[Rfam]
RNA sequence: CGGUGAUGCCUUCCUAUCCGUUAUCAAUGGAGGCACUCGGUCACGCUGUGGGUUGCAGGACCUUAGACGCAAGUCGUCAAAAGUGUGGUGUGAGGGGGGGUUGGAUGCCCC
Numbered sequence: 001c002g003g004u005g006a007u008g009c010c011u012u013c014c015u016a017u018c019c020g021u022u023a024u025c026a027a028u029g030g031a032g033g034c035a036c037u038c039g040g041u042c043a044c045g046c047u048g049u050g051g052g053u054u055g056c057a058g059g060a061c062c063u064u065a066g067a068c069g070c071a072a073g074u075c076g077u078c079a080a081a082a083g084u085g086u087g088g089u090g091u092g093a094g095g096g097g098g099g100g101u102u103g104g105a106u107g108c109c110c111c
Base pairs, nucleotide, nucleotide: 001020002019003018007035008034009033010032011031012030013029036094037093038092039091040089041088042087043086044085045084046083047082050063051062052061053060054059066078067077068076069075097111098110099109100108101107
RNA: epsC RNA